[Rfam]
RNA sequence: UCGCAUCCGCCAAUCGGUUCAGCCGUGUCGCGGAAGGUUUCUUAAACCACCUAAUGCUUUCUGGAGAAAGCGAAAGGCCCGCG
Numbered sequence: 001u002c003g004c005a006u007c008c009g010c011c012a013a014u015c016g017g018u019u020c021a022g023c024c025g026u027g028u029c030g031c032g033g034a035a036g037g038u039u040u041c042u043u044a045a046a047c048c049a050c051c052u053a054a055u056g057c058u059u060u061c062u063g064g065a066g067a068a069a070g071c072g073a074a075a076g077g078c079c080c081g082c083g
Stems, first nucleotide, its partner, number of pairs: 002083003006034005015025004036048004050077003056071006
About this RNA
Shown here is an 83-nucleotide RNA from Simplicispira hankyongi, a member of the family "SucA RNA motif". NCBI's taxonomy places the organism under Bacteria, Pseudomonadati, Burkholderiales, Comamonadaceae, Simplicispira. Its family is annotated with regulation of translation in the Gene Ontology.